[Rfam]
RNA sequence: CCAAAGGCUCUUUUAAGAGCCACCCAUAUAUCCACAAAGAGAGCUG
Dot-bracket structure: .....((((((....)))))).........................
RNA: Histone 3' UTR stem-loop